[Rfam]
RNA sequence: GGGAAAUGAGAGCUGGGUUUGGGACAAGACCCAUCCCAAGCUAAGGUGAAGUAGGCUCA
Numbered sequence: 001g002g003g004a005a006a007u008g009a010g011a012g013c014u015g016g017g018u019u020u021g022g023g024a025c026a027a028g029a030c031c032c033a034u035c036c037c038a039a040g041c042u043a044a045g046g047u048g049a050a051g052u053a054g055g056c057u058c059a
Stems, first nucleotide, its partner, number of pairs: 014043003018040007028058002031055002
Shown here is a 59-nucleotide sequence from Vicugna pacos, a member of the family "Ma3 gene ribosomal frameshift signal". On this family, see Wills et al., J Biol Chem 2006: "A functional -1 ribosomal frameshift signal in the human paraneoplastic Ma3 gene". Gene Ontology term of the family: translational frameshifting. A search with the family's covariance model found it, with a score of 53 bits.